[Rfam]
About this RNA:
This 133-nucleotide RNA from Salvator merianae belongs to the Rfam family "Small nucleolar RNA SNORA84". On this family, see Marker et al., Curr Biol 2002: "Experimental RNomics: identification of 140 candidates for small non-messenger RNAs in the plant Arabidopsis thaliana". The family's consensus secondary structure was predicted with WAR.
RNA sequence: GCCCUGUGGUUACUGGACGCUGUUACUUCAGUAUAGUGCUUCAGUUAGUAGAAAAGGGCCAACAGUAAUACUUUGACUUAUGCAUGGAGUCUGAUACCUUAGCAGCCUUCAUAGCCCAGUCAUUGUUACAUUU
Numbered sequence: 001g002c003c004c005u006g007u008g009g010u011u012a013c014u015g016g017a018c019g020c021u022g023u024u025a026c027u028u029c030a031g032u033a034u035a036g037u038g039c040u041u042c043a044g045u046u047a048g049u050a051g052a053a054a055a056g057g058g059c060c061a062a063c064a065g066u067a068a069u070a071c072u073u074u075g076a077c078u079u080a081u082g083c084a085u086g087g088a089g090u091c092u093g094a095u096a097c098c099u100u101a102g103c104a105g106c107c108u109u110c111a112u113a114g115c116c117c118a119g120u121c122a123u124u125g126u127u128a129c130a131u132u133u
Stems, first nucleotide, its partner, number of pairs: 001059004007050002010047001012045006019037005071125001074122005082115002084112004089107001091105003095101001
Its family is annotated with RNA processing and nucleolus in the Gene Ontology. Taxonomically the source falls in Salvator (Eukaryota, Chordata, Teleostomi, Squamata).